[Rfam]
Rfam assigns this 113-nucleotide sequence from Limoniibacter endophyticus to the family "Alphaproteobacterial ar15". The literature on the family includes a 2013 paper in PLoS One by Torres-Quesada et al., "Independent activity of the homologous small regulatory RNAs AbcR1 and AbcR2 in the legume symbiont Sinorhizobium meliloti". Rfam 15.1 lists 316 matches to the family in 177 species. The organism belongs to Limoniibacter, within Bacteria. Rfam classes the family as a small RNA.
RNA sequence: AUCUUUCAGGCGCGUUCCUCCUCCCAUUGGCGCCUGUUAGUGUUCCCCUCUGGAGUUUUUGCCUUAAUUGGCACUCCACACUUAUAGCCGGAUCCUUCGAUCCGGCUUUUUUU
Numbered sequence: 001a002u003c004u005u006u007c008a009g010g011c012g013c014g015u016u017c018c019u020c021c022u023c024c025c026a027u028u029g030g031c032g033c034c035u036g037u038u039a040g041u042g043u044u045c046c047c048c049u050c051u052g053g054a055g056u057u058u059u060u061g062c063c064u065u066a067a068u069u070g071g072c073a074c075u076c077c078a079c080a081c082u083u084a085u086a087g088c089c090g091g092a093u094c095c096u097u098c099g100a101u102c103c104g105g106c107u108u109u110u111u112u113u
Base pairs, nucleotide, nucleotide: 001041003040004039007036008035009034012033013032014031015030051078052077053076054075055074056073086107087106088105089104090103091102092101093100094099